[Rfam]
A member of the RNA family "T-box leader" from Oceanobacillus profundus, 271 nucleotides long.
About the family: Uncharged tRNA acts as the effector for transcription antitermination of genes in the T-box leader family.
On this family, see Grundy et al., RNA 2000: "tRNA determinants for transcription antitermination of the Bacillus subtilis tyrS gene".
It is annotated as a cis-regulatory leader.
RNA sequence: AAAAAAACGUUGAUGGGGAAAAGUAGGAUUUUCAUUUUUUCAAAGAGAGCUCCCGUAGCUGAGAAGGAGUAAAAAAAGAAAUCUGAACAAUGGCCUCGGAGUUUCGCAACUGAAACUAUUGUUAUAGGAGUAGGUUCCGGCGAGAUUUGGUACUCGUUAUCCAUACCACAGUAUAAUGAGAGCGAUUUAGCUUUUCGUACUUGAUGAGGCUGUAUGUGUGAGCAUACGGUGAAGUAAGGUGGUACCACGUUCAUUCAACCACGUCCUUACC
Numbered sequence: 001a002a003a004a005a006a007a008c009g010u011u012g013a014u015g016g017g018g019a020a021a022a023g024u025a026g027g028a029u030u031u032u033c034a035u036u037u038u039u040u041c042a043a044a045g046a047g048a049g050c051u052c053c054c055g056u057a058g059c060u061g062a063g064a065a066g067g068a069g070u071a072a073a074a075a076a077a078g079a080a081a082u083c084u085g086a087a088c089a090a091u092g093g094c095c096u097c098g099g100a101g102u103u104u105c106g107c108a109a110c111u112g113a114a115a116c117u118a119u120u121g122u123u124a125u126a127g128g129a130g131u132a133g134g135u136u137c138c139g140g141c142g143a144g145a146u147u148u149g150g151u152a153c154u155c156g157u158u159a160u161c162c163a164u165a166c167c168a169c170a171g172u173a174u175a176a177u178g179a180g181a182g183c184g185a186u187u188u189a190g191c192u193u194u195u196c197g198u199a200c201u202u203g204a205u206g207a208g209g210c211u212g213u214a215u216g217u218g219u220g221a222g223c224a225u226a227c228g229g230u231g232a233a234g235u236a237a238g239g240u241g242g243u244a245c246c247a248c249g250u251u252c253a254u255u256c257a258a259c260c261a262c263g264u265c266c267u268u269a270c271c
Base pairs, nucleotide, nucleotide: 007102008101015097016096017095018094026084027083028082029081030080031079038073039072040071049070050069051068052067053066105139106138108136109135110134111133141156142155143154209230210229211228212227213226214225215224236268237267238266239265247264248263249262250261